[Rfam]
Nucleotides: 120
Base pairs, nucleotide, nucleotide: 001033002032003031004030009026010025011024013022014021015020039083040082041081042080043079044078045077046076047075048074056069057068058067059066060065085104086103087102088101089100090099091098092097105120106119107118108117109116110115
Number, partner (000 for none) and nucleotide at each position: 001033u002032g003031c004030c005000u006000a007000a008000a009026c010025c011024c012000a013022g014021c015020a016000g017000a018000a019000a020015u021014g022013c023000g024011g025010g026009g027000c028000a029000u030004g031003g032002c033001a034000u035000a036000a037000a038000g039083c040082c041081a042080g043079u044078c045077a046076a047075g048074g049000g050000u051000a052000g053000a054000g055000a056069u057068c058067c059066c060065a061000u062000c063000g064000u065060u066059g067058g068057g069056g070000a071000a072000c073000a074048c075047c076046u077045u078044g079043a080042c081041u082040g083039g084000u085104c086103u087102a088101u089100g090099c091098c092097c093000g094000a095000a096000a097092g098091g099090g100089u101088g102087u103086a104085g105120g106119g107118u108117a109116g110115c111000g112000a113000a114000a115110g116109c117108u118107a119106u120105c
Shown here is a 120-nucleotide sequence, a member of the family "LOOT RNA".